[Rfam]
This 69-nucleotide RNA sequence from Streptomyces capitiformicae belongs to the Rfam family "ASpks TB sRNA". It scores 63 bits against the family's covariance model. For this family Rfam cites "Identification of small RNAs in Mycobacterium tuberculosis" (Arnvig and Young, Mol Microbiol, 2009).
RNA sequence: CUUCAGCGAGCCCAGCCACAGCGGGGUGUCGCGGUCCUGCCCGUAGGUGGCCAGCAGCGCGCCGGCCUC
Numbered sequence: 001c002u003u004c005a006g007c008g009a010g011c012c013c014a015g016c017c018a019c020a021g022c023g024g025g026g027u028g029u030c031g032c033g034g035u036c037c038u039g040c041c042c043g044u045a046g047g048u049g050g051c052c053a054g055c056a057g058c059g060c061g062c063c064g065g066c067c068u069c
Stems, first nucleotide, its partner, number of pairs: 016024002029065003032059002037054003041050003
Pairs were carried over by alignment from the consensus structure, which is taken from published work.
The family has 77 seed sequences and 9,052 matches in Rfam 15.1.